[Rfam]
RNA sequence: UUGCAUUGUUGAAAAUUAAGGCACUUAGUUUUGAUAUUGGUGUCUUCAUAAACAGUGCAGAUAAAAAUAGCCAUUCAAUUGGCAGCGGCCAGACAACCGUAGGGAUGGAUCCACAGAUGGUUAUCUUUUGAUGAUGACCACCUACUGAUUCCAUUGCACAUUU
Numbered sequence: 001u002u003g004c005a006u007u008g009u010u011g012a013a014a015a016u017u018a019a020g021g022c023a024c025u026u027a028g029u030u031u032u033g034a035u036a037u038u039g040g041u042g043u044c045u046u047c048a049u050a051a052a053c054a055g056u057g058c059a060g061a062u063a064a065a066a067a068u069a070g071c072c073a074u075u076c077a078a079u080u081g082g083c084a085g086c087g088g089c090c091a092g093a094c095a096a097c098c099g100u101a102g103g104g105a106u107g108g109a110u111c112c113a114c115a116g117a118u119g120g121u122u123a124u125c126u127u128u129u130g131a132u133g134a135u136g137a138c139c140a141c142c143u144a145c146u147g148a149u150u151c152c153a154u155u156g157c158a159c160a161u162u163u
Base pairs, nucleotide, nucleotide: 002059003058004057005056006055009051015049016048018046019045020044021043022042023041024040025039102157104155105154106153107152108151109150119139120138121137122136123135124134125133